[Rfam]
Nucleotides: 102
Base pairs, nucleotide, nucleotide: 001098002097003096004095005094006093008091011089014086017080018079019078020077022076028064029063030062032060033059
Number, partner (000 for none) and nucleotide at each position: 001098g002097g003096c004095u005094g006093g007000c008091c009000c010000c011089a012000g013000u014086g015000u016000a017080g018079u019078g020077g021000u022076g023000u024000u025000u026000a027000c028064a029063a030062u031000u032060a033059a034000u035000u036000g037000a038000u039000c040000a041000c042000u043000a044000c045000c046000a047000g048000u049000c050000a051000c052000a053000g054000a055000u056000u057000c058000c059033u060032u061000u062030g063029u064028u065000c066000c067000u068000u069000c070000u071000c072000c073000a074000c075000u076022c077020u078019c079018a080017c081000c082000g083000u084000u085000u086014c087000a088000c089011u090000u091008g092000a093006c094005u095004a096003g097002c098001c099000u100000u101000a102000a
The family of this 102-nucleotide RNA sequence from Propithecus coquereli is "Y RNA". From the family's description: Y RNAs are components of the Ro ribonucleoprotein particle (Ro RNP), in association with Ro60 and La proteins. The Y RNAs and Ro60 and La proteins are well conserved, but the function of the Ro RNP is not known. It scores 55 bits against the family's covariance model.